A member of the RNA family "c-di-AMP riboswitch aptamer (ydaO/yuaA leader)" from Paenibacillus sp. HGF7, 150 nucleotides long. Its family is annotated with regulation of gene expression and cyclic-di-AMP binding in the Gene Ontology. About the family: This family represents a conserved RNA structure found upstream of the ydaO and yuaA genes in Bacillus subtilis and related genes in other bacteria.

[Rfam]
RNA sequence: CAACUUCAUACGCCGAAUUUCCGCAGGAAAACGGGGGAACCAUACAUUGGGGUGAAUUUUACCGCUUGUGCCUGAAUAGGGCAGGGUAAAUAGGGUGGCCUGUACAUCCGAAUCCGUCAGCUAACCUCGUAGGCGACAGCAGGAACCAUA
Dot-bracket structure: ..........((((...(((.......)))((((((....((.....))(((.....((((((.....................))))))..((((.........))))...))).........)))))).))))...............
Background:
NCBI's taxonomy places the organism under Bacteria, Bacillota, Bacilli, Paenibacillaceae, Paenibacillus.